[Rfam]
RNA: Bacillus sRNA ncr1015
Organism: Paenibacillus piri
RNA sequence: AUGUAAGAUAGGAUAACUUUGAUCAUUAAUUAUGAACAGUCAUGAUUUGAUUAUAUCAUCGUGUCUGUUUAUGUGCAAUAAAAAAGAACCUGGUAAAACUAUCCAGGUUCUUUUUUGA
Numbered sequence: 001a002u003g004u005a006a007g008a009u010a011g012g013a014u015a016a017c018u019u020u021g022a023u024c025a026u027u028a029a030u031u032a033u034g035a036a037c038a039g040u041c042a043u044g045a046u047u048u049g050a051u052u053a054u055a056u057c058a059u060c061g062u063g064u065c066u067g068u069u070u071a072u073g074u075g076c077a078a079u080a081a082a083a084a085a086g087a088a089c090c091u092g093g094u095a096a097a098a099c100u101a102u103c104c105a106g107g108u109u110c111u112u113u114u115u116u117g118a
Base pairs, nucleotide, nucleotide: 032072033071034070035069036068037067038064041061082114083113084112085111086110087109088108089107090106091105092104093103